[Rfam]
RNA sequence: GGCGCCAACUUGUCACGGGCAUGCUUCUGUCCGGGUAGUUAGGUGUGAGGGUUGUGGCAUGCGUUAUUGUGACGCUGUCCCCAGGAUGUGGAUGAUGCGUCCAUCCCAAACCAGGAGUUGACAUUGAGGUAUAGUCGUAAGACAGUACAUCGAGGUCACUAAGGAAAGGUAUACCGCCCCAGGCUGGUAAACAGAGCAGGGAAAAGCCCUCGCUCUUGGUAGUGGGAGGAUCUCGUAUCAGAAUUCUGAUGUGUC
Numbered sequence: 001g002g003c004g005c006c007a008a009c010u011u012g013u014c015a016c017g018g019g020c021a022u023g024c025u026u027c028u029g030u031c032c033g034g035g036u037a038g039u040u041a042g043g044u045g046u047g048a049g050g051g052u053u054g055u056g057g058c059a060u061g062c063g064u065u066a067u068u069g070u071g072a073c074g075c076u077g078u079c080c081c082c083a084g085g086a087u088g089u090g091g092a093u094g095a096u097g098c099g100u101c102c103a104u105c106c107c108a109a110a111c112c113a114g115g116a117g118u119u120g121a122c123a124u125u126g127a128g129g130u131a132u133a134g135u136c137g138u139a140a141g142a143c144a145g146u147a148c149a150u151c152g153a154g155g156u157c158a159c160u161a162a163g164g165a166a167a168g169g170u171a172u173a174c175c176g177c178c179c180c181a182g183g184c185u186g187g188u189a190a191a192c193a194g195a196g197c198a199g200g201g202a203a204a205a206g207c208c209c210u211c212g213c214u215c216u217u218g219g220u221a222g223u224g225g226g227a228g229g230a231u232c233u234c235g236u237a238u239c240a241g242a243a244u245u246c247u248g249a250u251g252u253g254u255c
Stems, first nucleotide, its partner, number of pairs: 016033006076253003083247005089241001093240007101229002104227005110220009120157003124153004129148004134143003160164001166210001168208003177201003184194003
RNA: Protozoan signal recognition particle RNA
Organism: Phytophthora infestans